[Rfam]
RNA sequence: AUUAUUAAAGCCGUUAACCUCUGUAUAUCCUCGAUAAUAUGGUUCGAGAGUAUCUACCGGGAGUCCUUAAAAUUCCUGACUAUAGAGGCAGAAUAAGUGUAC
Dot-bracket structure: .................((((((((....(((((.........))))).........(((((((.......)))))))..))))))))..............
RNA: Purine riboswitch aptamer
Organism: Halolactibacillus alkaliphilus